[Rfam]
RNA sequence: GAAUGAAAUGAGGAUCAUUGUUGUUUUUGAUUGCCUCGAUGAUGGCAACUAUUGUAUUAGCUCUAUCUGAUCAUUC
Numbered sequence: 001g002a003a004u005g006a007a008a009u010g011a012g013g014a015u016c017a018u019u020g021u022u023g024u025u026u027u028u029g030a031u032u033g034c035c036u037c038g039a040u041g042a043u044g045g046c047a048a049c050u051a052u053u054g055u056a057u058u059a060g061c062u063c064u065a066u067c068u069g070a071u072c073a074u075u076c
Stems, first nucleotide, its partner, number of pairs: 002075004029049001032047004
RNA: Small nucleolar RNA Z102/R77
Organism: Cucurbita maxima